[Rfam]
RNA sequence: CACCGGGCCACGCCCCCCCACCGGGGCGCAUUCGCUUCUGGAAGGGAGCCGCAU
Numbered sequence: 001c002a003c004c005g006g007g008c009c010a011c012g013c014c015c016c017c018c019c020a021c022c023g024g025g026g027c028g029c030a031u032u033c034g035c036u037u038c039u040g041g042a043a044g045g046g047a048g049c050c051g052c053a054u
Stems, first nucleotide, its partner, number of pairs: 011028006034049006
Rfam assigns this 54-nucleotide RNA from Dankookia rubra to the family "serC leader".
By type it is a cis-regulatory leader.
Its family is annotated with regulation of gene expression in the Gene Ontology.
About the family: This family is a putative regulatory RNA structure that is found upstream of the serC-serA operon in some alpha-proteobacteria.
Taxonomically the source falls in Dankookia (Bacteria, Pseudomonadati, Alphaproteobacteria, Roseomonadaceae).
The pairing is the family consensus, mapped onto this sequence.